[Rfam]
RNA sequence: CCGUGCAGCCGGGGCGUUAGCGGUGCCUUGUACCUACAAUCCGCUAUAGUAGGGGUGAUAGAUGGUGGAGGGUCUGCGUUUGUGUAGCAGCCCUUUAUAAGUGGCGAUGAAGUUUGGGUCUUACGCAAUAUGUGCCUUUGAACCGUGUCAGGACAGGAAUGUAGCAGCACUAAGGAGGAUUUCAUAUGUGCCGUGAGGGUGCCUGGCGGAGUUAACUGUAAAGGUAACGUGCAUAAAUAUAAGAUUCGAAGCUGUCUGCACGG
Dot-bracket structure: ((((((((((((((((((...))))))))...(((((...........))))))))....((((((...(((((...(((((((((......((((((..(((((......((.(((((((((((((.((((..(((((.....((((....(((....)))....))))...)))))....))))))...))))))...)))))))...))).)).))))))......)))))))))....)))))...)))))))))))))
Numbered sequence: 001c002c003g004u005g006c007a008g009c010c011g012g013g014g015c016g017u018u019a020g021c022g023g024u025g026c027c028u029u030g031u032a033c034c035u036a037c038a039a040u041c042c043g044c045u046a047u048a049g050u051a052g053g054g055g056u057g058a059u060a061g062a063u064g065g066u067g068g069a070g071g072g073u074c075u076g077c078g079u080u081u082g083u084g085u086a087g088c089a090g091c092c093c094u095u096u097a098u099a100a101g102u103g104g105c106g107a108u109g110a111a112g113u114u115u116g117g118g119u120c121u122u123a124c125g126c127a128a129u130a131u132g133u134g135c136c137u138u139u140g141a142a143c144c145g146u147g148u149c150a151g152g153a154c155a156g157g158a159a160u161g162u163a164g165c166a167g168c169a170c171u172a173a174g175g176a177g178g179a180u181u182u183c184a185u186a187u188g189u190g191c192c193g194u195g196a197g198g199g200u201g202c203c204u205g206g207c208g209g210a211g212u213u214a215a216c217u218g219u220a221a222a223g224g225u226a227a228c229g230u231g232c233a234u235a236a237a238u239a240u241a242a243g244a245u246u247c248g249a250a251g252c253u254g255u256c257u258g259c260a261c262g263g
Stems, first nucleotide, its partner, number of pairs: 001263007008056003011029008033053005061256006070247005078238009093223006101216002103213003112207002115205005120197006126188002129186004135178005145170004153162003